This 92-nucleotide RNA sequence from Spinacia oleracea belongs to the Rfam family "Small nucleolar RNA SNORD25".
A reference for the family is Qu et al. (2001), "Identification of 10 novel snoRNA gene clusters from Arabidopsis thaliana", Nucleic Acids Res.
Rfam links the family to the GO terms nucleolus and RNA processing.
Rfam 15.1 lists 985 matches to the family in 241 species.
Clan: SNORD25 clan.
NCBI's taxonomy places the organism under Eukaryota, Tracheophyta, eudicotyledons, Caryophyllales, Spinacia.

[Rfam]
RNA sequence: UGAAACGAUGAUGAGUCAAUUACAGAACACAGACCUGUAAUGAUUAGCGGAUAUGAUCGCAAUUCAUUGAACAUCUAAGGGACUGAGUUCCA
Numbered sequence: 001u002g003a004a005a006c007g008a009u010g011a012u013g014a015g016u017c018a019a020u021u022a023c024a025g026a027a028c029a030c031a032g033a034c035c036u037g038u039a040a041u042g043a044u045u046a047g048c049g050g051a052u053a054u055g056a057u058c059g060c061a062a063u064u065c066a067u068u069g070a071a072c073a074u075c076u077a078a079g080g081g082a083c084u085g086a087g088u089u090c091c092a
Stems, first nucleotide, its partner, number of pairs: 002091001004089003